[Rfam]
This 107-nucleotide RNA sequence from Zoogloea dura belongs to the Rfam family "SAH (S-adenosyl-L-homocysteine) riboswitch aptamer". Pairs were carried over by alignment from the consensus structure, which is taken from published work. For this family Rfam cites "Riboswitches that sense S-adenosylhomocysteine and activate genes involved in coenzyme recycling" (Wang et al., Mol Cell, 2008).
RNA sequence: UGCUUCGAGGAGCGCUGCAAGACCACCGGGUGCAAGGCCCGCAGUCCCAGGCUCGACAGCAGUACCGCCGGCACGUGUGCCGGCAACAGCAACCGCGCUCACCCGUC
Numbered sequence: 001u002g003c004u005u006c007g008a009g010g011a012g013c014g015c016u017g018c019a020a021g022a023c024c025a026c027c028g029g030g031u032g033c034a035a036g037g038c039c040c041g042c043a044g045u046c047c048c049a050g051g052c053u054c055g056a057c058a059g060c061a062g063u064a065c066c067g068c069c070g071g072c073a074c075g076u077g078u079g080c081c082g083g084c085a086a087c088a089g090c091a092a093c094c095g096c097g098c099u100c101a102c103c104c105g106u107c
Stems, first nucleotide, its partner, number of pairs: 002060003005056004021046003026041001

Its family is annotated with S-adenosylhomocysteine metabolic process and regulation of gene expression in the Gene Ontology.